The family of this 83-nucleotide RNA from Arachis hypogaea is "Small nucleolar RNA Z102/R77". A search with the family's covariance model found it, with a score of 74 bits. The family's RNA type in Rfam is C/D-box small nucleolar RNA.
[Rfam]
RNA sequence: GAAUGGAAUGAGGAUUAUUUGUUUCCCUAUUGGUUUGAUUGCUUGAAUGAUGGCUAUUUUGUAUUAGCUCUAUCUGACCAUUC
Numbered sequence: 001g002a003a004u005g006g007a008a009u010g011a012g013g014a015u016u017a018u019u020u021g022u023u024u025c026c027c028u029a030u031u032g033g034u035u036u037g038a039u040u041g042c043u044u045g046a047a048u049g050a051u052g053g054c055u056a057u058u059u060u061g062u063a064u065u066a067g068c069u070c071u072a073u074c075u076g077a078c079c080a081u082u083c
Base pairs, nucleotide, nucleotide: 002082003081004080005079037055041054042053043052
Its family is annotated with RNA processing and nucleolus in the Gene Ontology. The family has 9 seed sequences and 1,346 matches in Rfam 15.1. Pairs were carried over by alignment from the consensus structure, which was predicted with PFOLD. The family is grouped with related families in Rfam's "SNORD44 clan". Taxonomically the source falls in Arachis (Eukaryota, Streptophyta, Streptophytina, Fabales).